[Rfam]
Group II catalytic intron D1-D4-7: a 151-nucleotide RNA sequence from Candidatus Magnetoglobus multicellularis. Group II introns are found in rRNA, tRNA and mRNA of organelles in fungi, plants and protists, and also in mRNA in bacteria. Rfam 15.1 lists 1,296 matches to the family in 705 species. The literature on the family includes a 2001 paper in Trends Genet by Bonen and Vogel, "The ins and outs of group II introns". The pairing is the family consensus, mapped onto this sequence. The source organism's lineage runs through Bacteria, Pseudomonadati, Thermodesulfobacteriota, Desulfobacteria and Candidatus Magnetoglobus multicellularis.
RNA sequence: CCUGGUAUGUUCCUACCAGUCCCUAAGCGGGCGUGCUCGCCACGCGCUGUGUGGUCGGUGCGCAGCCCCGCUGACAAAGGAUCGAAUUGGGUUGGGUUGGAUUGGAUUGGUGACAUGAAAACCCCUCAGGAAAUCCUCUCCUGUUAAGGCC
Dot-bracket structure: .((((((......)))))).......(((((((((((.(((((.......))))).))))))....)))))............((.(((...))).))((.(.....((....)).....).))..(((((.......)))))........
Numbered sequence: 001c002c003u004g005g006u007a008u009g010u011u012c013c014u015a016c017c018a019g020u021c022c023c024u025a026a027g028c029g030g031g032c033g034u035g036c037u038c039g040c041c042a043c044g045c046g047c048u049g050u051g052u053g054g055u056c057g058g059u060g061c062g063c064a065g066c067c068c069c070g071c072u073g074a075c076a077a078a079g080g081a082u083c084g085a086a087u088u089g090g091g092u093u094g095g096g097u098u099g100g101a102u103u104g105g106a107u108u109g110g111u112g113a114c115a116u117g118a119a120a121a122c123c124c125c126u127c128a129g130g131a132a133a134u135c136c137u138c139u140c141c142u143g144u145u146a147a148g149g150c151c
Stems, first nucleotide, its partner, number of pairs: 002019006027071005032062006039055005084098002087095003099124002102121001108115002127143005